[Rfam]
Shown here is a 104-nucleotide RNA from Neisseria meningitidis, a member of the family "TPP riboswitch aptamer (THI element)".
It scores 64 bits against the family's covariance model.
Pairs were carried over by alignment from the consensus structure, which is taken from published work.

RNA sequence: AGCUCCUUGUCGGAGUGCCGCCGCCGGGCGGCUGAGAUUGCGAAAGCAGAAUCCGUAGAACCUGUCGGGGUAAUGCCUGCGUAGGAAACAAACCGUCAAAUGCC
Numbered sequence: 001a002g003c004u005c006c007u008u009g010u011c012g013g014a015g016u017g018c019c020g021c022c023g024c025c026g027g028g029c030g031g032c033u034g035a036g037a038u039u040g041c042g043a044a045a046g047c048a049g050a051a052u053c054c055g056u057a058g059a060a061c062c063u064g065u066c067g068g069g070g071u072a073a074u075g076c077c078u079g080c081g082u083a084g085g086a087a088a089c090a091a092a093c094c095g096u097c098a099a100a101u102g103c104c
Stems, first nucleotide, its partner, number of pairs: 007091004011055004016049001017032005039048003061085004066079004